[Rfam]
RNA sequence: ACGGAUUGUGUCCGUAAUCACA
Numbered sequence: 001a002c003g004g005a006u007u008g009u010g011u012c013c014g015u016a017a018u019c020a021c022a
Stems, first nucleotide, its partner, number of pairs: 003013003007022004
This 22-nucleotide RNA sequence from Tobamovirus rehmanniae belongs to the Rfam family "Pseudoknot of upstream pseudoknot domain (UPD) of the 3'UTR". Rfam links the family to the GO terms regulation of viral transcription and positive regulation of viral translation. Taxonomically the source falls in Tobamovirus rehmanniae (Viruses, Riboviria, Orthornavirae, Kitrinoviricota).